This 113-nucleotide RNA from Bacillus subtilis belongs to the Rfam family "TPP riboswitch aptamer (THI element)". Taxonomically the source falls in Bacillus (Bacteria, Bacillati, Caryophanales, Bacillaceae). It is one of the family's seed sequences. From the family's description: Vitamin B(1) in its active form thiamin pyrophosphate (TPP) is an essential coenzyme that is synthesised by coupling of pyrimidine and thiazole moieties in bacteria.
RNA sequence: GGAAAGCACUAGGGGUGCUGUUUUGGCUGAGAUAAAGCGCGGAAGAAACGCGCUUUGAUCCCUUAUGACCCGAUCUGGAUAAUACCAGCGUGGGGAAGUGCAGGUUGACCGAA
Numbered sequence: 001g002g003a004a005a006g007c008a009c010u011a012g013g014g015g016u017g018c019u020g021u022u023u024u025g026g027c028u029g030a031g032a033u034a035a036a037g038c039g040c041g042g043a044a045g046a047a048a049c050g051c052g053c054u055u056u057g058a059u060c061c062c063u064u065a066u067g068a069c070c071c072g073a074u075c076u077g078g079a080u081a082a083u084a085c086c087a088g089c090g091u092g093g094g095g096a097a098g099u100g101c102a103g104g105u106u107g108a109c110c111g112a113a
Base pairs, nucleotide, nucleotide: 006101007100008099009098010097011063012062013061014060016057017027018026019025020024034056035055036054037053038052039051040050041049069094070093071092072091075088076087077086078085